[Rfam]
Plastid-ccsA-ndhD-1 3UTR RNA: a 46-nucleotide RNA.
A reference for the family is Richter et al. (2023), "Retrograde signaling in plants: A critical review focusing on the GUN pathway and beyond", Plant Commun.
Plastid-ccsA-ndhD-1 is a non-coding RNA (ncRNA) recognised in plastids. It was found in the three prime untranslated region (3UTR) of ccsA and ndhD genes, its 3UTR location suggests a role in transcript maturation.
The family's RNA type in Rfam is cis-regulatory element.
The sequence is in the family's curated seed alignment.
RNA sequence: UUGAGAACCAUGUGAAUCACUAUUUGAUUCACAUGGUUCUCAAAAA
Numbered sequence: 001u002u003g004a005g006a007a008c009c010a011u012g013u014g015a016a017u018c019a020c021u022a023u024u025u026g027a028u029u030c031a032c033a034u035g036g037u038u039c040u041c042a043a044a045a046a
Base pairs, nucleotide, nucleotide: 001043002042003041004040005039006038007037008036009035010034011033012032013031014030015029016028017027018026019025